Lysine riboswitch aptamer: a 177-nucleotide RNA from Haemophilus influenzae. It is one of the family's seed sequences.
RNA sequence: UACAAAAGUAGAGGCGCAAUUAUUAUAAGUAUUUUUUCAGAGUGGAUAACGAAGAAGAAAAAAGAAAGGAAUAGUUGCCGAAAUCAAAUAAAAGUCGUUUUGUUUGGUUGGUGGCGUGCUCGAAAGGGGCGACACUGUCAUAGUUUUUCUGAUUAACUAUGGAGUGCUACGGUUGUU
Numbered sequence: 001u002a003c004a005a006a007a008g009u010a011g012a013g014g015c016g017c018a019a020u021u022a023u024u025a026u027a028a029g030u031a032u033u034u035u036u037u038c039a040g041a042g043u044g045g046a047u048a049a050c051g052a053a054g055a056a057g058a059a060a061a062a063a064g065a066a067a068g069g070a071a072u073a074g075u076u077g078c079c080g081a082a083a084u085c086a087a088a089u090a091a092a093a094g095u096c097g098u099u100u101u102g103u104u105u106g107g108u109u110g111g112u113g114g115c116g117u118g119c120u121c122g123a124a125a126g127g128g129g130c131g132a133c134a135c136u137g138u139c140a141u142a143g144u145u146u147u148u149c150u151g152a153u154u155a156a157c158u159a160u161g162g163a164g165u166g167c168u169a170c171g172g173u174u175g176u177u
Base pairs, nucleotide, nucleotide: 008170009169010168011167016078017077018076019075020074021073022072023071024070032063033062034061035060036059037058038057082109083108084107085106086105087104088103089102090101091100092099093098110136111135112134113133115131116130117129119127120126138162139161140160141159142158143157144156
Annotation
Pairs were carried over by alignment from the consensus structure, which is taken from published work. Taxonomically the source falls in Haemophilus influenzae (Bacteria, Gammaproteobacteria, Pasteurellaceae, Haemophilus).